[Rfam]
RNA sequence: GGAUGUGAGGGCGAUCUGGCUGUGACAUCUGUCACCCCAUUGAUCGCCAGGGUUGAUUCGGCUGAUCUGGCUGGCUAAGCGGGUGUCCCCUUCCUCCCUCACCGCUCCAUGUGCGUCCCUCCCAAAGCUGCGUGCUCGGUGGAAGAGGACAACCAUCCCAGAUAGAAGGAGUGUACCGAUCUUCGGUCAAGGGUAUACGAUAGCUGCGCUCCCCUGCUAGAACCUCCAAACAAGCACUUCUGAAGAAGCUGAAGAAACUUCUUGAAGCAAAACAUCUUCAAAGAAAAAAACAAGGAAGUCCAGUUGCCUCUU
Numbered sequence: 001g002g003a004u005g006u007g008a009g010g011g012c013g014a015u016c017u018g019g020c021u022g023u024g025a026c027a028u029c030u031g032u033c034a035c036c037c038c039a040u041u042g043a044u045c046g047c048c049a050g051g052g053u054u055g056a057u058u059c060g061g062c063u064g065a066u067c068u069g070g071c072u073g074g075c076u077a078a079g080c081g082g083g084u085g086u087c088c089c090c091u092u093c094c095u096c097c098c099u100c101a102c103c104g105c106u107c108c109a110u111g112u113g114c115g116u117c118c119c120u121c122c123c124a125a126a127g128c129u130g131c132g133u134g135c136u137c138g139g140u141g142g143a144a145g146a147g148g149a150c151a152a153c154c155a156u157c158c159c160a161g162a163u164a165g166a167a168g169g170a171g172u173g174u175a176c177c178g179a180u181c182u183u184c185g186g187u188c189a190a191g192g193g194u195a196u197a198c199g200a201u202a203g204c205u206g207c208g209c210u211c212c213c214c215u216g217c218u219a220g221a222a223c224c225u226c227c228a229a230a231c232a233a234g235c236a237c238u239u240c241u242g243a244a245g246a247a248g249c250u251g252a253a254g255a256a257a258c259u260u261c262u263u264g265a266a267g268c269a270a271a272a273c274a275u276c277u278u279c280a281a282a283g284a285a286a287a288a289a290a291c292a293a294g295g296a297a298g299u300c301c302a303g304u305u306g307c308c309u310c311u312u
Base pairs, nucleotide, nucleotide: 001108002107003106005102006101007100008099009098010097011096013093014092018090019089024087025086026085027084028083029082030081031080032079035074036073037070038069039068042067043066044065045064046062047061048060117173118169119168120167121165122139123138125136127135128134140162147158148157149156203304204303205302209298210297212295213294215292216291225285227283233278234277
Dot-bracket structure: (((.(((((((.((...((....(((((((((..(((((..(((((((...........))).)))))))..))....))))))))).)).))..)))))))...)))........(((((((.(.((.....))).))(......(((......)))...)..).)))...).............................(((...((.((.((........(.(.....((..........................................))....).).....)).)).))...)))........
Shown here is a 312-nucleotide RNA from Naja naja, a member of the family "7SK RNA".
7SK was discovered as an abundant small nuclear RNA in the mid-70s but a possible function has only recently been suggested. Two independent studies have found that 7SK RNA binds the CDK9/cyclin T complex (known as elongation factor P-TEFb). P-TEFb activates transcription by phosphorylating the C-terminal domain of RNA polymerase II. This process is negatively regulated by the 7SK RNP. The secondary structure of 7SK RNA shown here was proposed by Wasserman and Steitz on the basis of chemical modification and enzymatic cleavage experiments. This family contains a number of annotated pseudogenes and 7SK derived repeats.
The family's consensus secondary structure is taken from published work.
The organism belongs to Naja, within Eukaryota.
By type it is a non-coding RNA gene.
Its Rfam clan is "7SK clan".
For this family Rfam cites "Transcription: surprising role for an elusive small nuclear RNA" (Blencowe, Curr Biol, 2002).
Rfam 15.1 lists 49,373 matches to the family in 668 species.